Rfam assigns this 91-nucleotide sequence from Allosaccharopolyspora coralli to the family "SAM riboswitch aptamer (S box leader)". The match comes from Rfam's covariance-model search (62 bits). The source organism's lineage runs through Bacteria, Bacillati, Actinomycetes, Pseudonocardiaceae and Allosaccharopolyspora. Clan: SAM clan.

[Rfam]
RNA sequence: AAUCCAUCCCGAGCGGCCGAGAGAUCUGGCUCGUCGACGCCGCAGCAACCACCCGUUCGCGGGUAGGUGCUACCGCCAGGACCGAUGGAGU
Number, nucleotide and partner (000 for none) at each position: 001a091002a000003u089004c088005c087006a086007u085008c084009c000010c000011g000012a000013g043014c042015g041016g040017c039018c000019g000020a000021g032022a031023g030024a000025u000026c079027u078028g077029g076030c023031u022032c021033g000034u000035c000036g000037a000038c000039g017040c016041c015042g014043c013044a071045g070046c069047a068048a000049c067050c066051a064052c063053c062054c061055g000056u000057u000058c000059g000060c000061g054062g053063g052064u051065a000066g050067g049068u047069g046070c045071u044072a000073c000074c000075g083076c029077c028078a027079g026080g000081a000082c000083c075084g008085a007086u006087g005088g004089a003090g000091u001